[Rfam]
RNA sequence: UGAAAAUUAAACGAUGUAAGCCCUACCUCUCAAACAUUCUUACGGCUCCGAAGCCGAUCCAGGUGAAUAAUUCCUUAACUAAACAA
Numbered sequence: 001u002g003a004a005a006a007u008u009a010a011a012c013g014a015u016g017u018a019a020g021c022c023c024u025a026c027c028u029c030u031c032a033a034a035c036a037u038u039c040u041u042a043c044g045g046c047u048c049c050g051a052a053g054c055c056g057a058u059c060c061a062g063g064u065g066a067a068u069a070a071u072u073c074c075u076u077a078a079c080u081a082a083a084c085a086a
Base pairs, nucleotide, nucleotide: 035065036064039062040061043056044055045054046053047052
Dot-bracket structure: ..................................((..((..(((((....)))))....)).)).....................